RNA sequence: GGUCACCUGCUCACAUGCAGGGGGCUUUACUUUCCAGGGGAUGAUAUCGGGUAAACUCGGUGCAUCACCUGAGCUAAACGGAAGACAGAAA
Numbered sequence: 001g002g003u004c005a006c007c008u009g010c011u012c013a014c015a016u017g018c019a020g021g022g023g024g025c026u027u028u029a030c031u032u033u034c035c036a037g038g039g040g041a042u043g044a045u046a047u048c049g050g051g052u053a054a055a056c057u058c059g060g061u062g063c064a065u066c067a068c069c070u071g072a073g074c075u076a077a078a079c080g081g082a083a084g085a086c087a088g089a090a091a
Stems, first nucleotide, its partner, number of pairs: 001026004006022003037070003042064002